[Rfam]
RNA sequence: GGCUUGUCUGAAGUCAGUAGUGUCUACAAUUAAUUGAUCACAACCAGUUACAGAUUUCUGUGUUCCUUCUCCAUUCCCACUGCUUCACUUCACUAGCCUUAA
Numbered sequence: 001g002g003c004u005u006g007u008c009u010g011a012a013g014u015c016a017g018u019a020g021u022g023u024c025u026a027c028a029a030u031u032a033a034u035u036g037a038u039c040a041c042a043a044c045c046a047g048u049u050a051c052a053g054a055u056u057u058c059u060g061u062g063u064u065c066c067u068u069c070u071c072c073a074u075u076c077c078c079a080c081u082g083c084u085u086c087a088c089u090u091c092a093c094u095a096g097c098c099u100u101a102a
Stems, first nucleotide, its partner, number of pairs: 001098004006093002010090002016081003020077001022076001028064003033059001
Shown here is a 102-nucleotide RNA from Gorilla gorilla, a member of the family "Y RNA".
Rfam's curators write: Y RNAs are components of the Ro ribonucleoprotein particle (Ro RNP), in association with Ro60 and La proteins. The Y RNAs and Ro60 and La proteins are well conserved, but the function of the Ro RNP is not known.
It scores 55 bits against the family's covariance model.
Lineage of the source: Eukaryota > Craniata > Primates > Haplorrhini > Gorilla gorilla.